[Rfam]
RNA sequence: GCUUAUAUAGGAUAGUAAAAUGGACUAUCGACUCCACCCCUAGACCAAAAGUAGGGACUAUAAGU
Numbered sequence: 001g002c003u004u005a006u007a008u009a010g011g012a013u014a015g016u017a018a019a020a021u022g023g024a025c026u027a028u029c030g031a032c033u034c035c036a037c038c039c040c041u042a043g044a045c046c047a048a049a050a051g052u053a054g055g056g057a058c059u060a061u062a063a064g065u
Stems, first nucleotide, its partner, number of pairs: 001065007008036001011029006022046002030037001038056005